[Rfam]
RNA sequence: GGGGAUGUUUUGGGAUUCGACAGGCGCAGACCCGCGCUGGUUGCGAUUCGUAGGUUACGUCUACGUUAAAACGUUAAACAGUUUAAAUUAACUGCAAACGAAAACUCAUACGCUGUAGCUGCUUAGUUCAGCCCAGCUGCCAAUAGACUGCCUGCCCGUGGCGGUCUUGCGGUAUCAACAUUACGGGAUACGCUUGCCUAUCACACCUGAAUAAGCGAGAAGAGACUAACAGGUUAGCCGUGGCUGUUUGGCCCUGUCAUAUGGCGUUUUGCCCCGGUGAAGUUUAAAUAAUAUGACUAUGAUCGUAGAGAUUAGUGACGGGAUGCGUUUGGACAGGGGUUCAAUUCCCCUCAUCUCCAUCU
Numbered sequence: 001g002g003g004g005a006u007g008u009u010u011u012g013g014g015a016u017u018c019g020a021c022a023g024g025c026g027c028a029g030a031c032c033c034g035c036g037c038u039g040g041u042u043g044c045g046a047u048u049c050g051u052a053g054g055u056u057a058c059g060u061c062u063a064c065g066u067u068a069a070a071a072c073g074u075u076a077a078a079c080a081g082u083u084u085a086a087a088u089u090a091a092c093u094g095c096a097a098a099c100g101a102a103a104a105c106u107c108a109u110a111c112g113c114u115g116u117a118g119c120u121g122c123u124u125a126g127u128u129c130a131g132c133c134c135a136g137c138u139g140c141c142a143a144u145a146g147a148c149u150g151c152c153u154g155c156c157c158g159u160g161g162c163g164g165u166c167u168u169g170c171g172g173u174a175u176c177a178a179c180a181u182u183a184c185g186g187g188a189u190a191c192g193c194u195u196g197c198c199u200a201u202c203a204c205a206c207c208u209g210a211a212u213a214a215g216c217g218a219g220a221a222g223a224g225a226c227u228a229a230c231a232g233g234u235u236a237g238c239c240g241u242g243g244c245u246g247u248u249u250g251g252c253c254c255u256g257u258c259a260u261a262u263g264g265c266g267u268u269u270u271g272c273c274c275c276g277g278u279g280a281a282g283u284u285u286a287a288a289u290a291a292u293a294u295g296a297c298u299a300u301g302a303u304c305g306u307a308g309a310g311a312u313u314a315g316u317g318a319c320g321g322g323a324u325g326c327g328u329u330u331g332g333a334c335a336g337g338g339g340u341u342c343a344a345u346u347c348c349c350c351u352c353a354u355c356u357c358c359a360u361c362u
Stems, first nucleotide, its partner, number of pairs: 001358007021331008032320001035317008044305005049065005055076001057074004114136001118132004138174004146166007155187005193219005199213003205234005237278004242273003246269001251265003256297004262291001335351005
Rfam assigns this 362-nucleotide sequence from Lactobacillus delbrueckii to the family "transfer-messenger RNA". For this family Rfam cites "Phylogenetic analysis of tmRNA secondary structure" (Williams and Bartel, RNA, 1996). Rfam's curators put it in the seed alignment. The family is grouped with related families in Rfam's "tRNA clan". About the family: Bacterial tmRNA, also known as 10Sa RNA or SsrA, is named for its dual tRNA and mRNA-like properties. Its role is to liberate the mRNA from a stalled ribosome. To accomplish this part of the tmRNA is used as a reading frame that ends in a translation stop signal. The broken mRNA is replaced in the ribosome by the tmRNA and translation of the tmRNA leads to addition of a proteolysis tag to the incomplete protein enabling recognition by a protease. The organism belongs to Lactobacillus delbrueckii subsp. bulgaricus, within Bacteria.